[Rfam]
Nucleotides: 088
Base pairs, nucleotide, nucleotide: 003086004085007082008081009080010079011078013063014062015061022057023056024055025054026053027052028051029050037075038074039071040070041069042068043067
Number, partner (000 for none) and nucleotide at each position: 001000a002000a003086a004085u005000c006000g007082g008081c009080u010079u011078g012000g013063g014062g015061c016000u017000g018000u019000g020000a021000u022057u023056c024055a025054c026053c027052u028051u029050c030000u031000u032000u033000a034000u035000c036000c037075g038074g039071g040070c041069g042068u043067c044000u045000c046000c047000a048000c049000g050029g051028a052027g053026g054025g055024u056023g057022a058000g059000g060000a061015g062014c063013c064000a065000g066000u067043g068042a069041c070040g071039c072000g073000a074038c075037c076000g077000a078011c079010a080009a081008g082007c083000a084000a085004g086003u087000c088000g
The record is an 88-nucleotide RNA sequence, which matches "c-di-GMP-II-GAG riboswitch aptamer" in Rfam. The family is grouped with related families in Rfam's "c-di-GMP_II riboswitch clan".